[Rfam]
RNA sequence: UACGACGCCCAUCAAAGAGGUCGUUACCCACCCAGGAGCUACUAUACCAUAUUCCGAAUUC
Dot-bracket structure: ................(.(((.(((.(.......).))).))).)................
RNA: Plastid-psbN 5UTR RNA